[Rfam]
DUF3800-XI RNA: a 48-nucleotide RNA from Treponema bryantii.
About the family: Actinobacteria, Firmicutes, Proteobacteria, Spirochaetes (1 example).
By type it is a small RNA.
NCBI's taxonomy places the organism under Bacteria, Spirochaetia, Treponemataceae, Treponema, Treponema bryantii.
RNA sequence: CGGGCUGGUCGAAAGACCCUGGUCCAUCUACCGGCGGGGAAGUUCCUC
Numbered sequence: 001c002g003g004g005c006u007g008g009u010c011g012a013a014a015g016a017c018c019c020u021g022g023u024c025c026a027u028c029u030a031c032c033g034g035c036g037g038g039g040a041a042g043u044u045c046c047u048c
Stems, first nucleotide, its partner, number of pairs: 002025005007018004